RNA sequence: UUUUUACGGUCUUUAACGAACAAUGGCCGGAACUGUAGUGAACCUAUGGUUAUAAAUCAUCAAAUUGCGGGAAACCCCUAAAGAAAUCUUAUCCAAACAAGCAUGGUAACAUAGUUUGUGGCACAGGUAAUGACUCGUGGUAUGGGAAAAUCAAGAUUUAUUAUUCAAUGGGCAAUCCGCAGCCAAGUACCAAGUAUAGGCGCAGCCUUAUUUGGUAUGCAGUUCAUCGACUAAACGGUGGUUGGUAUUAUUAAUAUUAAUAAUGCUUAAGAUAUAGUCAGCCCCCACCUGAAAAGGUGCA
Numbered sequence: 001u002u003u004u005u006a007c008g009g010u011c012u013u014u015a016a017c018g019a020a021c022a023a024u025g026g027c028c029g030g031a032a033c034u035g036u037a038g039u040g041a042a043c044c045u046a047u048g049g050u051u052a053u054a055a056a057u058c059a060u061c062a063a064a065u066u067g068c069g070g071g072a073a074a075c076c077c078c079u080a081a082a083g084a085a086a087u088c089u090u091a092u093c094c095a096a097a098c099a100a101g102c103a104u105g106g107u108a109a110c111a112u113a114g115u116u117u118g119u120g121g122c123a124c125a126g127g128u129a130a131u132g133a134c135u136c137g138u139g140g141u142a143u144g145g146g147a148a149a150a151u152c153a154a155g156a157u158u159u160a161u162u163a164u165u166c167a168a169u170g171g172g173c174a175a176u177c178c179g180c181a182g183c184c185a186a187g188u189a190c191c192a193a194g195u196a197u198a199g200g201c202g203c204a205g206c207c208u209u210a211u212u213u214g215g216u217a218u219g220c221a222g223u224u225c226a227u228c229g230a231c232u233a234a235a236c237g238g239u240g241g242u243u244g245g246u247a248u249u250a251u252u253a254a255u256a257u258u259a260a261u262a263a264u265g266c267u268u269a270a271g272a273u274a275u276a277g278u279c280a281g282c283c284c285c286c287a288c289c290u291g292a293a294a295a296g297g298u299g300c301a
Base pairs, nucleotide, nucleotide: 001025003023004022035044055243056242057241058240059239061237066181067180068179069178070177071176076172077171078170182223183222187218188217189216190215191214192213193212194211195210196209227280229279230278231277232276233275245266246265247264248263249262250261251260252259253258286299287298288297289296290295

Rfam assigns this 301-nucleotide RNA sequence from Gnomoniopsis smithogilvyi to the family "Group I catalytic intron".
Rfam 15.1 lists 5,602 matches to the family in 1,395 species.
It scores 98 bits against the family's covariance model.